[Rfam]
The family of this 123-nucleotide RNA from Orthohepacivirus hominis is "Hepatitis C virus J7880 RNA". Pairs were carried over by alignment from the consensus structure, which was predicted with RNAfold. Rfam's curators put it in the seed alignment. The source organism's lineage runs through Viruses, Riboviria, Orthornavirae, Amarillovirales and Hepatitis C virus genotype 6. The family's RNA type in Rfam is cis-regulatory element. A reference for the family is Mauger et al. (2015), "Functionally conserved architecture of hepatitis C virus RNA genomes", Proc Natl Acad Sci U S A.
RNA sequence: GUGAAGGAUCGGGCUUCUAGUGUGAGUGCCAGGCUCCUCUCAACGGAGGAAGCCUGCAAACUCACCCCCCCUCACUCGGCUCGCUCCAAGUUCGGGUACGGGGCUAAGGAAGUCCGAAGCCUU
Number, nucleotide and partner (000 for none) at each position: 001g000002u000003g000004a000005a000006g120007g000008a000009u117010c116011g000012g114013g113014c112015u111016u110017c109018u108019a000020g000021u000022g065023u064024g063025a062026g000027u000028g057029c056030c000031a000032g053033g000034c000035u050036c049037c048038u047039c046040u000041c000042a000043a000044c000045g000046g039047a038048g037049g036050a035051a000052g000053c032054c000055u000056g029057c028058a000059a000060a000061c000062u025063c024064a023065c022066c000067c000068c103069c102070c101071c100072u000073c000074a097075c096076u095077c094078g092079g091080c090081u000082c000083g000084c000085u000086c000087c000088a000089a000090g080091u079092u078093c000094g077095g076096g075097u074098a000099c000100g071101g070102g069103g068104c000105u000106a000107a000108g018109g017110a016111a015112g014113u013114c012115c000116g010117a009118a000119g000120c006121c000122u000123u000